[Rfam]
RNA: Microsporidia small subunit ribosomal RNA, nucleotides 456 to 803
Organism: Culicosporella lunata
RNA sequence: CGGUUAAAACGUGCGUAGUCUGAUUUGCGAGAUCUAAAGUAAAGAUGCUUUUAUCUAAAAGUAGAAUAUUUUAGAGAUCAAAAAUCUUGAGACAGAGGAGAGGUAACGAAAUUCGAUGGCGAGAGGUGAAAAUUGAUGACCCAUCGAGGAGAAACAGAGGCGAAAGCGGUUACCAGAAGCUGUUCUGACGAUCAAGCACGUGAGCAGGAGUAUCGAAGGCGAUUAGACACCGUCGUAGUUCCUUGCAGUAAACGAUGCCCACACUGAUGUGCUUAACGCAUGUCAGACGCAAAAGUUAAAGUGAGGCUCCGGGGAUAGUACGGUCGCAAGAUUGAAACUUGAAGAAAU
Numbered sequence: 001c002g003g004u005u006a007a008a009a010c011g012u013g014c015g016u017a018g019u020c021u022g023a024u025u026u027g028c029g030a031g032a033u034c035u036a037a038a039g040u041a042a043a044g045a046u047g048c049u050u051u052u053a054u055c056u057a058a059a060a061g062u063a064g065a066a067u068a069u070u071u072u073a074g075a076g077a078u079c080a081a082a083a084a085u086c087u088u089g090a091g092a093c094a095g096a097g098g099a100g101a102g103g104u105a106a107c108g109a110a111a112u113u114c115g116a117u118g119g120c121g122a123g124a125g126g127u128g129a130a131a132a133u134u135g136a137u138g139a140c141c142c143a144u145c146g147a148g149g150a151g152a153a154a155c156a157g158a159g160g161c162g163a164a165a166g167c168g169g170u171u172a173c174c175a176g177a178a179g180c181u182g183u184u185c186u187g188a189c190g191a192u193c194a195a196g197c198a199c200g201u202g203a204g205c206a207g208g209a210g211u212a213u214c215g216a217a218g219g220c221g222a223u224u225a226g227a228c229a230c231c232g233u234c235g236u237a238g239u240u241c242c243u244u245g246c247a248g249u250a251a252a253c254g255a256u257g258c259c260c261a262c263a264c265u266g267a268u269g270u271g272c273u274u275a276a277c278g279c280a281u282g283u284c285a286g287a288c289g290c291a292a293a294a295g296u297u298a299a300a301g302u303g304a305g306g307c308u309c310c311g312g313g314g315a316u317a318g319u320a321c322g323g324u325c326g327c328a329a330g331a332u333u334g335a336a337a338c339u340u341g342a343a344g345a346a347a348u
Stems, first nucleotide, its partner, number of pairs: 001311003011199004018192003090186003093182003102174006112148008123134002160167002204246002206243004214238001218234004257307003260303003264286009289296002313340002322333004